Glycine riboswitch aptamer: a 97-nucleotide RNA sequence from Streptomyces palmae.
[Rfam]
RNA sequence: UGACCCCGCGCGGGAGAGUCCUCCGUCGCAUCGGCGGGGGCGCCGAAGGAGCAAAUCCUCCCCGGAAUCUCUCAGGCACAUGAACCGCACGGGUGAG
Numbered sequence: 001u002g003a004c005c006c007c008g009c010g011c012g013g014g015a016g017a018g019u020c021c022u023c024c025g026u027c028g029c030a031u032c033g034g035c036g037g038g039g040g041c042g043c044c045g046a047a048g049g050a051g052c053a054a055a056u057c058c059u060c061c062c063c064g065g066a067a068u069c070u071c072u073c074a075g076g077c078a079c080a081u082g083a084a085c086c087g088c089a090c091g092g093g094u095g096a097g
Stems, first nucleotide, its partner, number of pairs: 006092003010088004020040006042077003045073002049071003056064001